About this RNA: This 73-nucleotide sequence from Rousettus aegyptiacus belongs to the Rfam family "Small nucleolar RNA SNORD110". Taxonomically the source falls in Rousettus (Eukaryota, Chordata, Theria, Laurasiatheria). A search with the family's covariance model found it, with a score of 88 bits.

RNA sequence: UUGCAGUGAUGACUCAAAUCAAAUCUGUCAAUCCACUGAGUGCAAUUACUGAUGUCUCCAUGUCUCUGAGCAA
Numbered sequence: 001u002u003g004c005a006g007u008g009a010u011g012a013c014u015c016a017a018a019u020c021a022a023a024u025c026u027g028u029c030a031a032u033c034c035a036c037u038g039a040g041u042g043c044a045a046u047u048a049c050u051g052a053u054g055u056c057u058c059c060a061u062g063u064c065u066c067u068g069a070g071c072a073a
Stems, first nucleotide, its partner, number of pairs: 001073004
On this family, see Galardi et al., Mol Cell Biol 2002: "Purified box C/D snoRNPs are able to reproduce site-specific 2'-O-methylation of target RNA in vitro". Its Rfam clan is "SNORD110 clan".